[Rfam]
RNA sequence: UGUGAUAUUUUGAGAUUGUGCCACAUCAUCACUUGAAAAUUAAAAAGUUCACAUAAAUUUUCAGGUGACGACGUGGUACAGUCUUAGGGUGUCAC
Numbered sequence: 001u002g003u004g005a006u007a008u009u010u011u012g013a014g015a016u017u018g019u020g021c022c023a024c025a026u027c028a029u030c031a032c033u034u035g036a037a038a039a040u041u042a043a044a045a046a047g048u049u050c051a052c053a054u055a056a057a058u059u060u061u062c063a064g065g066u067g068a069c070g071a072c073g074u075g076g077u078a079c080a081g082u083c084u085u086a087g088g089g090u091g092u093c094a095c
Stems, first nucleotide, its partner, number of pairs: 003094007012085013026071002029068013
Shown here is a 95-nucleotide sequence from Gossypium gossypioides, a member of the family "MIR8675 microRNA precursor family". Lineage of the source: Eukaryota > Viridiplantae > Spermatophyta > Pentapetalae > Gossypium.